[Rfam]
RNA sequence: CCAGAAGGCCGGGCGGUCGCGGGUCGGGGAAACCCGGCCUGAGGAAAGUCCGGGCUCCAGCGGGGCAGGGUGCCGGGUAACACCCGGACGGGGCGACCCGUGGACAGGGCCACAGAAAACAGACCGCCGAUCCGCCCGGGGCCCUCCCCGGGGCCAUGGAGGCAAGGGUGAAAAGGUGGGGUAAGAGCCCACCGGCCGGGCGGCAACGUUCCGGCGCAUGGCAACCCCCACCCGGAGCAAGGCCAAGCAGCGGGCGCGGCGCCCUCCGGGGCGCCGGGGCUGCCCCGCGCCCAAUGCCCGCGGGUAGGCCGCUUGAGGCGGCGGGCAACCGCCGUCCCAGAGAGAUGACCGCCACCCCGCGGAUCCCCGCGGGGGACAGAACCCGGCUUACAGGCCCUCUGGCGCG
Numbered sequence: 001c002c003a004g005a006a007g008g009c010c011g012g013g014c015g016g017u018c019g020c021g022g023g024u025c026g027g028g029g030a031a032a033c034c035c036g037g038c039c040u041g042a043g044g045a046a047a048g049u050c051c052g053g054g055c056u057c058c059a060g061c062g063g064g065g066c067a068g069g070g071u072g073c074c075g076g077g078u079a080a081c082a083c084c085c086g087g088a089c090g091g092g093g094c095g096a097c098c099c100g101u102g103g104a105c106a107g108g109g110c111c112a113c114a115g116a117a118a119a120c121a122g123a124c125c126g127c128c129g130a131u132c133c134g135c136c137c138g139g140g141g142c143c144c145u146c147c148c149c150g151g152g153g154c155c156a157u158g159g160a161g162g163c164a165a166g167g168g169u170g171a172a173a174a175g176g177u178g179g180g181g182u183a184a185g186a187g188c189c190c191a192c193c194g195g196c197c198g199g200g201c202g203g204c205a206a207c208g209u210u211c212c213g214g215c216g217c218a219u220g221g222c223a224a225c226c227c228c229c230a231c232c233c234g235g236a237g238c239a240a241g242g243c244c245a246a247g248c249a250g251c252g253g254g255c256g257c258g259g260c261g262c263c264c265u266c267c268g269g270g271g272c273g274c275c276g277g278g279g280c281u282g283c284c285c286c287g288c289g290c291c292c293a294a295u296g297c298c299c300g301c302g303g304g305u306a307g308g309c310c311g312c313u314u315g316a317g318g319c320g321g322c323g324g325g326c327a328a329c330c331g332c333c334g335u336c337c338c339a340g341a342g343a344g345a346u347g348a349c350c351g352c353c354a355c356c357c358c359g360c361g362g363a364u365c366c367c368c369g370c371g372g373g374g375g376a377c378a379g380a381a382c383c384c385g386g387c388u389u390a391c392a393g394g395c396c397c398u399c400u401g402g403c404g405c406g
Stems, first nucleotide, its partner, number of pairs: 001402005007396004011391001012353007020041009046389003050386005055237004063285004068233005073087005088101005102228002107226002109222003124167002126163003131160004175193006194217001195215005200209003241310004250301006277292004317336008
RNA: Bacterial RNase P class A
Organism: Candidatus Thermoflexus japonica